[Rfam]
RNA: ivy-DE RNA
Organism: Stutzerimonas stutzeri
RNA sequence: GAACCAAGGGGUCGGGACGCUCUGUUUCAAGGAGCGACCUAGGGGUACAAGGAGUACCUCCUUCGAGGACCAGGUUCGGCGAAGG
Numbered sequence: 001g002a003a004c005c006a007a008g009g010g011g012u013c014g015g016g017a018c019g020c021u022c023u024g025u026u027u028c029a030a031g032g033a034g035c036g037a038c039c040u041a042g043g044g045g046u047a048c049a050a051g052g053a054g055u056a057c058c059u060c061c062u063u064c065g066a067g068g069a070c071c072a073g074g075u076u077c078g079g080c081g082a083a084g085g
Base pairs, nucleotide, nucleotide: 001077002076003075004074005073010071011070012069013068014040015039016038018036020034021033022032023031042060043059044058045057046056047055048054